[Rfam]
RNA sequence: UGGUGCCCAACGUGGGGCCUGGAUACCGGGGGACAAUGUGAGGGACCCGACGAAAGAUGAAGGGGUGCGCACCUGUUCAAAUAGUUCGGAGACAUCAUGGUAGCCUGCUGUGACCCAGCCGACAGGUAAGUUGGUCGUUAAUCAUGGGGCAAGAAUUAAGUCAGCAUCAGAAAUAUGUGAUACAGUUGAGAGAAGCUUUACAUGCAACAGGAGUAAAGGUUACAACUGAGGAUUUAUGUCAUUUCUUUGAUUUCGUGAAAGACAUCUGCCCAU
Numbered sequence: 001u002g003g004u005g006c007c008c009a010a011c012g013u014g015g016g017g018c019c020u021g022g023a024u025a026c027c028g029g030g031g032g033a034c035a036a037u038g039u040g041a042g043g044g045a046c047c048c049g050a051c052g053a054a055a056g057a058u059g060a061a062g063g064g065g066u067g068c069g070c071a072c073c074u075g076u077u078c079a080a081a082u083a084g085u086u087c088g089g090a091g092a093c094a095u096c097a098u099g100g101u102a103g104c105c106u107g108c109u110g111u112g113a114c115c116c117a118g119c120c121g122a123c124a125g126g127u128a129a130g131u132u133g134g135u136c137g138u139u140a141a142u143c144a145u146g147g148g149g150c151a152a153g154a155a156u157u158a159a160g161u162c163a164g165c166a167u168c169a170g171a172a173a174u175a176u177g178u179g180a181u182a183c184a185g186u187u188g189a190g191a192g193a194a195g196c197u198u199u200a201c202a203u204g205c206a207a208c209a210g211g212a213g214u215a216a217a218g219g220u221u222a223c224a225a226c227u228g229a230g231g232a233u234u235u236a237u238g239u240c241a242u243u244u245c246u247u248u249g250a251u252u253u254c255g256u257g258a259a260a261g262a263c264a265u266c267u268g269c270c271c272a273u
Base pairs, nucleotide, nucleotide: 006031007030008029012026013025014024038046039045086126087125088123093118096112097111098110099109100108132152134150135149138147139146140145157200158199159198160196161195209247210246211245212244213243217235218234219233220232221231258273261270263268
Rfam assigns this 273-nucleotide RNA sequence from Nannospalax galili to the family "Mason-Pfizer monkey virus packaging signal". The family's RNA type in Rfam is cis-regulatory element. Taxonomically the source falls in Nannospalax (Eukaryota, Craniata, Sarcopterygii, Theria). Rfam describes the family as follows. This family represents a group of sequences that are related to the Mason-Pfizer monkey virus (MPMV) packaging signal. The packaging signal is located in the 5' UTR and is required for specific RNA encapsidation. The family's consensus secondary structure was predicted with PFOLD. It scores 121 bits against the family's covariance model.